[Rfam]
RNA sequence: CAAAAAAGCGUCUGGUUGAGUAUCCUAACGGGCUUUUCAACCAAUGAAAUUUUAAUUUGAAUAGGAGAUGUGUUAGUGGCCCGUAUCGCUGGCAUUAACAUCCCUGAU
Dot-bracket structure: ...((((...(.(..........[[...[[[[....{{{....).)...))))..........................]]]].......]]............}}}.
A member of the RNA family "Alpha operon ribosome binding site" from Thalassomonas actiniarum, 108 nucleotides long.
A search with the family's covariance model found it, with a score of 83 bits.
It is annotated as a cis-regulatory element.
About the family: The bacterial alpha operon ribosome binding site is surrounded by this complex pseudoknotted structure. Translation of the mRNA produces 4 ribosomal protein products, one of which (S4) acts as a translational repressor by binding to the nested pseudoknot region. The mechanism of repression is thought to involve a conformational switch in the pseudoknot region and ribosome entrapment.
On this family, see Schlax et al., J Biol Chem 2001: "Translational repression of the Escherichia coli alpha operon mRNA: importance of an mRNA conformational switch and a ternary entrapment complex".